[Rfam]
RNA sequence: ACAACAUUCGGACCGUCGGUCUACCGAGCAAUGUCACGCGCUCGGUGGAAAGCCUUACCUUUUUCGU
Numbered sequence: 001a002c003a004a005c006a007u008u009c010g011g012a013c014c015g016u017c018g019g020u021c022u023a024c025c026g027a028g029c030a031a032u033g034u035c036a037c038g039c040g041c042u043c044g045g046u047g048g049a050a051a052g053c054c055u056u057a058c059c060u061u062u063u064u065c066g067u
Stems, first nucleotide, its partner, number of pairs: 004064001006062001010058001012056001015053002020049010
Shown here is a 67-nucleotide sequence from Bombyx mori, a member of the family "mir-2774 microRNA precursor family". Rfam links the family to the GO terms miRNA-mediated post-transcriptional gene silencing and RISC complex. NCBI's taxonomy places the organism under Eukaryota, Arthropoda, Lepidoptera, Bombycinae, Bombyx. The literature on the family includes a 2010 paper in BMC Genomics by Liu et al., "MicroRNAs of Bombyx mori identified by Solexa sequencing".